The family of this 110-nucleotide RNA from Nocardioides jejuensis is "TPP riboswitch aptamer (THI element)".
[Rfam]
RNA sequence: CAAGAACACACGGGAGUCCGCGGCAGUGGACUGAGAGGGAGCUGGAGCCGCUCCGACCGUCGAACCUGAUCCGGGUAAUGCCGGCGAUAGGGACGUGAAGGAGUGCACCU
Numbered sequence: 001c002a003a004g005a006a007c008a009c010a011c012g013g014g015a016g017u018c019c020g021c022g023g024c025a026g027u028g029g030a031c032u033g034a035g036a037g038g039g040a041g042c043u044g045g046a047g048c049c050g051c052u053c054c055g056a057c058c059g060u061c062g063a064a065c066c067u068g069a070u071c072c073g074g075g076u077a078a079u080g081c082c083g084g085c086g087a088u089a090g091g092g093a094c095g096u097g098a099a100g101g102a103g104u105g106c107a108c109c110u
Stems, first nucleotide, its partner, number of pairs: 007097003011059003016031005038054005065091004071084004